[Rfam]
This 121-nucleotide RNA from Anaerobacillus alkaliphilus belongs to the Rfam family "PyrR binding site". It scores 67 bits against the family's covariance model. The literature on the family includes a 2001 paper in Nucleic Acids Res by Bonner et al., "Molecular recognition of pyr mRNA by the Bacillus subtilis attenuation regulatory protein PyrR".
RNA sequence: CCUCCCUUUAAAGCAGUCCUGUGAGGCUGACAAGGGGUAUACUCCUCUAACUUAAAUUUGCAAUGGGCAAAUUUAGCUGGAUGAACAUACCUCUUUGAAAAAACAAAGAGGUUUUUUGUAU
Numbered sequence: 001c002c003u004c005c006c007u008u009u010a011a012a013g014c015a016g017u018c019c020u021g022u023g024a025g026g027c028u029g030a031c032a033a034g035g036g037g038u039a040u041a042c043u044c045c046u047c048u049a050a051c052u053u054a055a056a057u058u059u060g061c062a063a064u065g066g067g068c069a070a071a072u073u074u075a076g077c078u079g080g081a082u083g084a085a086c087a088u089a090c091c092u093c094u095u096u097g098a099a100a101a102a103a104c105a106a107a108g109a110g111g112u113u114u115u116u117u118g119u120a121u
Base pairs, nucleotide, nucleotide: 003037004036005035006034007033008032014029015028016027017026018025048080050078052076053075054074055073056072057071058070059069060068061067085116087114089112090111091110092109093108094107095106096105097104